[Rfam]
Shown here is a 92-nucleotide sequence from Tursiops truncatus, a member of the family "Small nucleolar RNA SNORD116".
Taxonomically the source falls in Tursiops (Eukaryota, Craniata, Boreoeutheria, Whippomorpha).
It scores 94 bits against the family's covariance model.
RNA sequence: GGAUUGAUGAUUACUCCCACAAAUGCAUUCCUUGGAAAUCUGAACAAAAUGAGUGAGCAAUCCCUACCGUCUCCUCAUCAGAACCGAGGUCC
Numbered sequence: 001g002g003a004u005u006g007a008u009g010a011u012u013a014c015u016c017c018c019a020c021a022a023a024u025g026c027a028u029u030c031c032u033u034g035g036a037a038a039u040c041u042g043a044a045c046a047a048a049a050u051g052a053g054u055g056a057g058c059a060a061u062c063c064c065u066a067c068c069g070u071c072u073c074c075u076c077a078u079c080a081g082a083a084c085c086g087a088g089g090u091c092c
Base pairs, nucleotide, nucleotide: 001092002091003090004089005088026055027054028053029052030051032047033046034045